[Rfam]
RNA sequence: CGAGAGAAUCAUGGUUAAGGAACUCGGCAAAAUGCCCCCGUAACUUCGGGAGAAGGGGGACCUUGAGCGUGAUGGGCACUUGCUGCCUGGAGCGUGUAUGGGUCGCAGAGACCAGGGGGAAGCGACUGUUUAUCAAAAACACAGGUCCGUGCGAAGUCGUAAGACGAUGUAUACGGACUGACUCCUGCCCGGUGCUGGAAGGUUAAGAGGAUUGGUUAGCCUUUUUUGGGCGAAGCUGAGAAUUUAAGCCCCAGUAAACGGCGGUGGUAACUAUAACCAUCCUAAGGUAGCGAAAUUCCUUGUCGGGUAAGUUCCGACCUGCACGAAUGGAGUAACGACUUCCCUACUGUCUCAACCAUGAACUCGGCGAAAUUGCAGUACGAGUAAAGAUGCUCGUUU
Numbered sequence: 001c002g003a004g005a006g007a008a009u010c011a012u013g014g015u016u017a018a019g020g021a022a023c024u025c026g027g028c029a030a031a032a033u034g035c036c037c038c039c040g041u042a043a044c045u046u047c048g049g050g051a052g053a054a055g056g057g058g059g060a061c062c063u064u065g066a067g068c069g070u071g072a073u074g075g076g077c078a079c080u081u082g083c084u085g086c087c088u089g090g091a092g093c094g095u096g097u098a099u100g101g102g103u104c105g106c107a108g109a110g111a112c113c114a115g116g117g118g119g120a121a122g123c124g125a126c127u128g129u130u131u132a133u134c135a136a137a138a139a140c141a142c143a144g145g146u147c148c149g150u151g152c153g154a155a156g157u158c159g160u161a162a163g164a165c166g167a168u169g170u171a172u173a174c175g176g177a178c179u180g181a182c183u184c185c186u187g188c189c190c191g192g193u194g195c196u197g198g199a200a201g202g203u204u205a206a207g208a209g210g211a212u213u214g215g216u217u218a219g220c221c222u223u224u225u226u227u228g229g230g231c232g233a234a235g236c237u238g239a240g241a242a243u244u245u246a247a248g249c250c251c252c253a254g255u256a257a258a259c260g261g262c263g264g265u266g267g268u269a270a271c272u273a274u275a276a277c278c279a280u281c282c283u284a285a286g287g288u289a290g291c292g293a294a295a296u297u298c299c300u301u302g303u304c305g306g307g308u309a310a311g312u313u314c315c316g317a318c319c320u321g322c323a324c325g326a327a328u329g330g331a332g333u334a335a336c337g338a339c340u341u342c343c344c345u346a347c348u349g350u351c352u353c354a355a356c357c358a359u360g361a362a363c364u365c366g367g368c369g370a371a372a373u374u375g376c377a378g379u380a381c382g383a384g385u386a387a388a389g390a391u392g393c394u395c396g397u398u399u
Stems, first nucleotide, its partner, number of pairs: 001366004009361008018352003035059005044049001060103004104108001116345007123337002127141003144179008152169001156165003182332004187262003192259002194255005201250003263281006282286001302318006380397005
RNA: Archaeal large subunit ribosomal RNA, nucleotides 1195 to 1593
Organism: Rothia mucilaginosa